[Rfam]
RNA: Mammalian CPEB3 ribozyme
Organism: Alligator sinensis
RNA sequence: UUGCAAGUUCAGGGCUAUAGCAAAAGCGUUCAUGGUGUGGGCCUCCCAGAUUCUAGUGAAUCUGCAAAUUCUGCU
Numbered sequence: 001u002u003g004c005a006a007g008u009u010c011a012g013g014g015c016u017a018u019a020g021c022a023a024a025a026g027c028g029u030u031c032a033u034g035g036u037g038u039g040g041g042c043c044u045c046c047c048a049g050a051u052u053c054u055a056g057u058g059a060a061u062c063u064g065c066a067a068a069u070u071c072u073g074c075u
Stems, first nucleotide, its partner, number of pairs: 012043002015040002019075004024070002026038003047064007